Annotation
The record is an 89-nucleotide sequence from Phrynocephalus forsythii, which matches "Small nucleolar RNA SNORD90" in Rfam. Gene Ontology terms of the family: nucleolus and RNA processing. The match comes from Rfam's covariance-model search (44 bits). The family has 18 seed sequences and 545 matches in Rfam 15.1. For this family Rfam cites "RNomics: an experimental approach that identifies 201 candidates for novel, small, non-messenger RNAs in mouse" (Huttenhofer et al., EMBO J, 2001). The base pairs follow the family's consensus structure, which was predicted with RNAalifold.

RNA sequence: UGUCUGAUGAUGAGGAUGCAUAGGGCAGAUUCUGAGCCGGGAGGUGCCUCUCCCUGGCCCUGAUCUCCAGUUUAUGCUGCCUGAAGACA
Number, nucleotide and partner (000 for none) at each position: 001u089002g088003u087004c086005u085006g000007a000008u000009g000010a000011u000012g000013a000014g000015g080016a000017u000018g077019c076020a075021u074022a000023g000024g068025g067026c000027a000028g064029a000030u000031u063032c062033u000034g060035a000036g058037c057038c056039g055040g054041g053042a000043g000044g000045u000046g000047c000048c000049u000050c000051u000052c000053c041054c040055u039056g038057g037058c036059c000060c034061u000062g032063a031064u028065c000066u000067c025068c024069a000070g000071u000072u000073u000074a021075u020076g019077c018078u000079g000080c015081c000082u000083g000084a000085a005086g004087a003088c002089a001